[Rfam]
RNA: Plastid-ndhJ 3UTR RNA
RNA sequence: UUAUGAACUAUGUAUCACGCAUAUUACUUAGAUGUGCUUUAGAAAUUCAUCGUAGGGG
Numbered sequence: 001u002u003a004u005g006a007a008c009u010a011u012g013u014a015u016c017a018c019g020c021a022u023a024u025u026a027c028u029u030a031g032a033u034g035u036g037c038u039u040u041a042g043a044a045a046u047u048c049a050u051c052g053u054a055g056g057g058g
Base pairs, nucleotide, nucleotide: 019037020036022034023033024032025031